[Rfam]
RNA sequence: AUAAUGAUACUUCAAUAGUUUAAGCUGCCUCGUCUGGAAUAAGAGGCGGAGGUGAGAUUCCUAUGU
Dot-bracket structure: ...........(((.(.......).))((...(.(.......).)..))(((.......))))...

Notes
pemK RNA: a 66-nucleotide RNA from Streptococcus intermedius. The source organism's lineage runs through Bacteria, Bacillota, Bacilli, Lactobacillales and Streptococcus intermedius.